[Rfam]
RNA sequence: CCUGCCCCAGCUCGUGUUACAGACAUGGCUGCAGUGCCACGUUUGUGUCAUUCAGUGGCAGAGAGGACAAGGUGAGGUCUUCCCCUGGUGCUCUGACCCACGUGGGCUCCCAGGAUUGCUCAACAGCCU
Numbered sequence: 001c002c003u004g005c006c007c008c009a010g011c012u013c014g015u016g017u018u019a020c021a022g023a024c025a026u027g028g029c030u031g032c033a034g035u036g037c038c039a040c041g042u043u044u045g046u047g048u049c050a051u052u053c054a055g056u057g058g059c060a061g062a063g064a065g066g067a068c069a070a071g072g073u074g075a076g077g078u079c080u081u082c083c084c085c086u087g088g089u090g091c092u093c094u095g096a097c098c099c100a101c102g103u104g105g106g107c108u109c110c111c112a113g114g115a116u117u118g119c120u121c122a123a124c125a126g127c128c129u
Stems, first nucleotide, its partner, number of pairs: 002061005007055001010052001014048002019046004024041001026039004070129003073122004081115003087111002090107004
The record is a 129-nucleotide RNA from Formicarius rufipectus, which matches "Small nucleolar RNA SNORA17" in Rfam. By type it is an H/ACA-box small nucleolar RNA. The organism belongs to Formicarius, within Eukaryota. Its Rfam clan is "SNORA17 clan". snoRNA ACA 17 belongs to the H/ACA family of snoRNAs and is predicted to guide pseudouridylation of the 28S rRNA at positions U4659 and U4598. Rfam links the family to the GO terms RNA processing and nucleolus.